[Rfam]
RNA sequence: GGCAUGGGGAUCGCGAUCACCCCAUGAGGCGACAGGCUGAAGCAUCGCGUCCUUCUUGAUAACUCAAGGACGCAUCAUG
Numbered sequence: 001g002g003c004a005u006g007g008g009g010a011u012c013g014c015g016a017u018c019a020c021c022c023c024a025u026g027a028g029g030c031g032a033c034a035g036g037c038u039g040a041a042g043c044a045u046c047g048c049g050u051c052c053u054u055c056u057u058g059a060u061a062a063c064u065c066a067a068g069g070a071c072g073c074a075u076c077a078u079g
Stems, first nucleotide, its partner, number of pairs: 005024005047073006

Shown here is a 79-nucleotide RNA from Sphingobium amiense, a member of the family "chrB-a RNA". It is annotated as a cis-regulatory element.